mir-181 microRNA precursor family: an 83-nucleotide sequence from Patagioenas fasciata.

RNA sequence: GCGUCCCGGGGAACAUUCAACGCUGUCGGUGAGUUUGUGGCUGUGGGUGAAACCACCGAGCGUUGCGUGUGCCCCGUGGCUUC
Numbered sequence: 001g002c003g004u005c006c007c008g009g010g011g012a013a014c015a016u017u018c019a020a021c022g023c024u025g026u027c028g029g030u031g032a033g034u035u036u037g038u039g040g041c042u043g044u045g046g047g048u049g050a051a052a053c054c055a056c057c058g059a060g061c062g063u064u065g066c067g068u069g070u071g072c073c074c075c076g077u078g079g080c081u082u083c
Stems, first nucleotide, its partner, number of pairs: 001083001003081001004079002007076002014069003018065005026059006033053004
The literature on the family includes a 2001 paper in Cell by Ambros, "microRNAs: tiny regulators with great potential". The source organism's lineage runs through Eukaryota, Gnathostomata, Sarcopterygii, Aves and Patagioenas fasciata. The match comes from Rfam's covariance-model search (62 bits). Gene Ontology terms of the family: RISC complex and miRNA-mediated post-transcriptional gene silencing.